[Rfam]
Nucleotides: 212
Base pairs, nucleotide, nucleotide: 009026010025011024012023013022045114046113047112048111050110058072059071060070061069083095084094085093086092087091142180143179147175148174149173150172153171154170155169156168
Number, partner (000 for none) and nucleotide at each position: 001000a002000a003000a004000a005000a006000c007000g008000c009026c010025g011024g012023c013022a014000a015000c016000u017000g018000g019000a020000c021000g022013u023012g024011c025010c026009g027000a028000c029000a030000a031000g032000g033000g034000c035000a036000a037000a038000c039000a040000a041000c042000a043000a044000a045114u046113c047112a048111g049000g050110c051000c052000g053000u054000a055000a056000c057000g058072a059071c060070c061069g062000c063000g064000c065000u066000g067000g068000a069061c070060g071059g072058u073000g074000a075000a076000c077000g078000g079000c080000c081000g082000c083095g084094a085093c086092g087091c088000g089000g090000u091087g092086c093085g094084u095083c096000a097000g098000g099000a100000a101000c102000c103000g104000g105000g106000g107000g108000g109000c110050g111048u112047u113046g114045a115000a116000c117000u118000c119000a120000a121000a122000a123000c124000a125000c126000a127000u128000g129000g130000c131000a132000c133000u134000g135000c136000a137000g138000c139000c140000a141000u142180u143179g144000c145000g146000g147175a148174c149173g150172g151000a152000u153171u154170c155169u156168a157000g158000c159000a160000g161000g162000g163000u164000u165000u166000u167000a168156u169155a170154g171153a172150u173149c174148g175147u176000c177000a178000a179143u180142g181000c182000u183000a184000u185000a186000a187000a188000a189000c190000u191000c192000a193000c194000a195000a196000a197000a198000c199000a200000u201000a202000a203000c204000a205000a206000a207000a208000u209000g210000u211000a212000a